[Rfam]
RNA sequence: UGCUGGUGGUGAAGCACUCCCUCUCGGAACACUGGGCCUUGCCAGGGGUAGGCCGUGCGGGGGUCUGUCCAGGGGGCA
Dot-bracket structure: ((((......................................................................))))
Numbered sequence: 001u002g003c004u005g006g007u008g009g010u011g012a013a014g015c016a017c018u019c020c021c022u023c024u025c026g027g028a029a030c031a032c033u034g035g036g037c038c039u040u041g042c043c044a045g046g047g048g049u050a051g052g053c054c055g056u057g058c059g060g061g062g063g064u065c066u067g068u069c070c071a072g073g074g075g076g077c078a
Stems, first nucleotide, its partner, number of pairs: 001078004

Shown here is a 78-nucleotide RNA from Crocuta crocuta, a member of the family "Z6 small nucleolar RNA". Gene Ontology terms of the family: nucleolus and RNA processing. By type it is a C/D-box small nucleolar RNA. Taxonomically the source falls in Crocuta (Eukaryota, Metazoa, Mammalia, Theria). A reference for the family is Galardi et al. (2002), "Purified box C/D snoRNPs are able to reproduce site-specific 2'-O-methylation of target RNA in vitro", Mol Cell Biol.